[Rfam]
RNA sequence: CUUAACGUUCAUCAGGCAAUACUCCUCCCGUUGCUUGGUAACGUUCCCGGAAGGGCAUCCUCCUCCCAGCCCUGACCGGACAAUGCGACGCCCGCCGGACCUCCUCCCCCGGCGGGCGUUCGCG
Numbered sequence: 001c002u003u004a005a006c007g008u009u010c011a012u013c014a015g016g017c018a019a020u021a022c023u024c025c026u027c028c029c030g031u032u033g034c035u036u037g038g039u040a041a042c043g044u045u046c047c048c049g050g051a052a053g054g055g056c057a058u059c060c061u062c063c064u065c066c067c068a069g070c071c072c073u074g075a076c077c078g079g080a081c082a083a084u085g086c087g088a089c090g091c092c093c094g095c096c097g098g099a100c101c102u103c104c105u106c107c108c109c110c111g112g113c114g115g116g117c118g119u120u121c122g123c124g
Base pairs, nucleotide, nucleotide: 007042008041009040011039012038013037014036015035016034017033047079048078049077050076052073053072054071055070056069088119089118090117091116092115093114094113095112096111097110098109
Alphaproteobacterial ar14: a 124-nucleotide RNA sequence from Stappia albiluteola. About the family: Smr14C2 was renamed NfeR1 (Nodule Formation Efficiency RNA) highly expressed in salt stress and during the symbiotic interaction on legume roots. The pairing is the family consensus, mapped onto this sequence. NCBI's taxonomy places the organism under Bacteria, Alphaproteobacteria, Hyphomicrobiales, Stappiaceae, Stappia.